[Rfam]
Overview
Small nucleolar RNA SNORD20: an 80-nucleotide sequence from Phocoena sinus. Lineage of the source: Eukaryota > Metazoa > Craniata > Phocoenidae > Phocoena. The literature on the family includes a 1994 paper in Mol Cell Biol by Nicoloso et al., "U20, a novel small nucleolar RNA, is encoded in an intron of the nucleolin gene in mammals". The pairing is the family consensus, mapped onto this sequence. Gene Ontology terms of the family: nucleolus and RNA processing. U20 is a C/D box small nucleolar RNA that is encoded in intron 11 of the nucleolin gene in human, mouse and rat.

RNA sequence: UGGACAUGAUGACUGAUUAUCUGAGAAACAGCUGAUGAAAGCUCACGCAAAGCCCUCUAGAUAGUCAAGUUCUGAUCCAG
Numbered sequence: 001u002g003g004a005c006a007u008g009a010u011g012a013c014u015g016a017u018u019a020u021c022u023g024a025g026a027a028a029c030a031g032c033u034g035a036u037g038a039a040a041g042c043u044c045a046c047g048c049a050a051a052g053c054c055c056u057c058u059a060g061a062u063a064g065u066c067a068a069g070u071u072c073u074g075a076u077c078c079a080g
Base pairs, nucleotide, nucleotide: 001079002078003077004076